[Rfam]
RNA sequence: AGUCUGUUUCAGGGCGAGGUGCAAGUCCUCACCGGUGGUAUUUUGCUUCGGCAAUAAGUCCGCGAGCCGAAAGGCUGAUCUGGUUAGAAUCCAGAACCGACGGUAUAGUCCGGAUGAAAGAAAUGACGU
Numbered sequence: 001a002g003u004c005u006g007u008u009u010c011a012g013g014g015c016g017a018g019g020u021g022c023a024a025g026u027c028c029u030c031a032c033c034g035g036u037g038g039u040a041u042u043u044u045g046c047u048u049c050g051g052c053a054a055u056a057a058g059u060c061c062g063c064g065a066g067c068c069g070a071a072a073g074g075c076u077g078a079u080c081u082g083g084u085u086a087g088a089a090u091c092c093a094g095a096a097c098c099g100a101c102g103g104u105a106u107a108g109u110c111c112g113g114a115u116g117a118a119a120g121a122a123a124u125g126a127c128g129u
Base pairs, nucleotide, nucleotide: 005125006124007123008122009121010120017029018028019027031109032108033099034098035063036062037061038060058097059096066075067074068073079095080094081093082092083091101112102111103110
RNA: FMN riboswitch aptamer (RFN element)
Organism: Acetobacterium paludosum